[Rfam]
RNA sequence: UGCCGGCUUUCCAUCAGCCGGGGUACUGAAGAGGCACACCAUCAUUGCCGGAAGUGCGGUAGGGUCUCCCUCCAAUCCAUGGCAGACAAAGCGGAUUUAUGCGCUCAGGCAAGAGUGCGUUUAUCCAUCGUUUCGCGCGUCGAGCGUUCGUACGGUAC
Numbered sequence: 001u002g003c004c005g006g007c008u009u010u011c012c013a014u015c016a017g018c019c020g021g022g023g024u025a026c027u028g029a030a031g032a033g034g035c036a037c038a039c040c041a042u043c044a045u046u047g048c049c050g051g052a053a054g055u056g057c058g059g060u061a062g063g064g065u066c067u068c069c070c071u072c073c074a075a076u077c078c079a080u081g082g083c084a085g086a087c088a089a090a091g092c093g094g095a096u097u098u099a100u101g102c103g104c105u106c107a108g109g110c111a112a113g114a115g116u117g118c119g120u121u122u123a124u125c126c127a128u129c130g131u132u133u134c135g136c137g138c139g140u141c142g143a144g145c146g147u148u149c150g151u152a153c154g155g156u157a158c
Stems, first nucleotide, its partner, number of pairs: 001023001003021006033049004056138003082092001101120004
RNA: speF leader
Organism: Agrobacterium albertimagni